[Rfam]
RNA sequence: GGGGUCGACCGGAAUUGACAGGAUGGAGAUAAGUAUGUAAGCAUGCAGCGCGUUGGGUGAAUUAGCGCUUUAAUCUGAACGCUCAAACUUUCAAAUGGCGAAAAUCAAUACGCCUUAGCUGCCUAAUUUAGAAUUAGAAUAGCUUUUGUCCCGUCGUUGUUCUGUUUCAUUGCAGCGGCACCAGGGGCAUCGAAAAAUGAAACUGGCUUGUUUGGGGUACGGCAAACAGGUGAGAAACAGUACCUAAGGAUGCGGUACAGGUAAUCGGUUAACCUUCUUCAUCCCGACAAUUAAAUAACAGAUAAGCAUGUAGAAAGCGUACCUUAUACCAUGUUUGGACGAGGGUUCGAAUCCCUCCGGCUCCACAA
Numbered sequence: 001g002g003g004g005u006c007g008a009c010c011g012g013a014a015u016u017g018a019c020a021g022g023a024u025g026g027a028g029a030u031a032a033g034u035a036u037g038u039a040a041g042c043a044u045g046c047a048g049c050g051c052g053u054u055g056g057g058u059g060a061a062u063u064a065g066c067g068c069u070u071u072a073a074u075c076u077g078a079a080c081g082c083u084c085a086a087a088c089u090u091u092c093a094a095a096u097g098g099c100g101a102a103a104a105u106c107a108a109u110a111c112g113c114c115u116u117a118g119c120u121g122c123c124u125a126a127u128u129u130a131g132a133a134u135u136a137g138a139a140u141a142g143c144u145u146u147u148g149u150c151c152c153g154u155c156g157u158u159g160u161u162c163u164g165u166u167u168c169a170u171u172g173c174a175g176c177g178g179c180a181c182c183a184g185g186g187g188c189a190u191c192g193a194a195a196a197a198u199g200a201a202a203c204u205g206g207c208u209u210g211u212u213u214g215g216g217g218u219a220c221g222g223c224a225a226a227c228a229g230g231u232g233a234g235a236a237a238c239a240g241u242a243c244c245u246a247a248g249g250a251u252g253c254g255g256u257a258c259a260g261g262u263a264a265u266c267g268g269u270u271a272a273c274c275u276u277c278u279u280c281a282u283c284c285c286g287a288c289a290a291u292u293a294a295a296u297a298a299c300a301g302a303u304a305a306g307c308a309u310g311u312a313g314a315a316a317g318c319g320u321a322c323c324u325u326a327u328a329c330c331a332u333g334u335u336u337g338g339a340c341g342a343g344g345g346u347u348c349g350a351a352u353c354c355c356u357c358c359g360g361c362u363c364c365a366c367a368a
Base pairs, nucleotide, nucleotide: 001364002363003362004361005360006359007358019337020336021335022334023332024331025330026329030326031325032324033323034321035320036319037318038317042310043309044308045307046306047069048068049067050066051065054085055084056083057082058081059080147189148188149187150186151185152184154178155177156176157175158174159173160172165202166201167200168199169198170197206231207230208229209228210227211226212225213224214223216244217243218242219241220240248284249283250282251281252280254278255277260274261273262272265302266301269298270297271296341357342356343355344354345353